[Rfam]
RNA sequence: UGGGCCUGAGUAUUACAUCAGGUACUGGUCUGACAGAUGAGCCACCAGUACCUGUGUGAUAUUCACUCCCC
Numbered sequence: 001u002g003g004g005c006c007u008g009a010g011u012a013u014u015a016c017a018u019c020a021g022g023u024a025c026u027g028g029u030c031u032g033a034c035a036g037a038u039g040a041g042c043c044a045c046c047a048g049u050a051c052c053u054g055u056g057u058g059a060u061a062u063u064c065a066c067u068c069c070c071c
Base pairs, nucleotide, nucleotide: 002070003069004068009063010062011061012060015057016056017055018054021052022051023050024049025048026047027046028045029044
Shown here is a 71-nucleotide RNA from Rhipicephalus microplus, a member of the family "mir-12 microRNA precursor family". NCBI's taxonomy places the organism under Eukaryota, Arachnida, Ixodidae, Rhipicephalinae, Boophilus. It scores 66 bits against the family's covariance model.